[Rfam]
RNA sequence: AAAUAUUGGUGCUAUUCACUAUGUAUAUCCUGAGAAUUGGCUCAGAGUUUCUACCAACUACCGUAAAGAGUUGACUACAUGGCUUUUUGUAGUUGGC
Number, nucleotide and partner (000 for none) at each position: 001a000002a000003a000004u000005a000006u000007u000008g000009g000010u000011g000012c000013u000014a000015u000016u000017c000018a000019c082020u081021a080022u079023g078024u077025a076026u000027a000028u000029c000030c045031u044032g043033a042034g041035a000036a000037u000038u000039g000040g000041c034042u033043c032044a031045g030046a000047g000048u000049u000050u000051c000052u000053a000054c000055c073056a072057a071058c070059u069060a000061c000062c000063g000064u000065a000066a000067a000068g000069a059070g058071u057072u056073g055074a000075c000076u025077a024078c023079a022080u021081g020082g019083c000084u000085u000086u000087u000088u000089g000090u000091a000092g000093u000094u000095g000096g000097c000